[Rfam]
RNA sequence: AAAAUACUUAUGGGGAGCUCAUGUUAUGGGCUGAGAAAGGGCUGUCAAGCACCUGACCCGUGAACCUGAUCGGGGUAAUGCCCGCGUAGGAAAGGUUUGAUGCUUGUAC
Numbered sequence: 001a002a003a004a005u006a007c008u009u010a011u012g013g014g015g016a017g018c019u020c021a022u023g024u025u026a027u028g029g030g031c032u033g034a035g036a037a038a039g040g041g042c043u044g045u046c047a048a049g050c051a052c053c054u055g056a057c058c059c060g061u062g063a064a065c066c067u068g069a070u071c072g073g074g075g076u077a078a079u080g081c082c083c084g085c086g087u088a089g090g091a092a093a094g095g096u097u098u099g100a101u102g103c104u105u106g107u108a109c
Stems, first nucleotide, its partner, number of pairs: 006097001008095002011060004016054001017031005039052001041050002065090004071084004
This 109-nucleotide RNA sequence from Desulfocucumis palustris belongs to the Rfam family "TPP riboswitch aptamer (THI element)".
Lineage of the source: Bacteria > Bacillati > Bacillota > Desulfocucumaceae > Desulfocucumis.